[Rfam]
RNA sequence: AUACUGUGAUGGUUGCAUAGUUCAACAGAUUGAAUCAUGAAAGAGUUAACAUAUGACUGAGUAUCU
Numbered sequence: 001a002u003a004c005u006g007u008g009a010u011g012g013u014u015g016c017a018u019a020g021u022u023c024a025a026c027a028g029a030u031u032g033a034a035u036c037a038u039g040a041a042a043g044a045g046u047u048a049a050c051a052u053a054u055g056a057c058u059g060a061g062u063a064u065c066u
Stems, first nucleotide, its partner, number of pairs: 001064004006038005013028003043054001045052001047051001